[Rfam]
RNA sequence: CCAUUGCCUGCGGCGCGCCUUCUGGAUUUAUCCAGUUGGUUCACCGUUAGUGCAGGCGGGGGCGACAUUUAUCACAGCGUGUCGCAUGCCCAACCCCGCUUCUUACUCCUUAGCCUACUCCUACUCUGUGUGGGGGUAGGCAUCUUUUUACUCCCCGCUCGGUAGAGCGGCAAACUUA
Dot-bracket structure: .....((..((((...(((..(((((....)))))..)))...))))..))...(((((((((((((............))))))........)))))))............((((((((((((.....))))))))))))..........(..(((.(......).)))..).....
RNA: Hepatitis C virus (HCV) cis-acting replication element (CRE)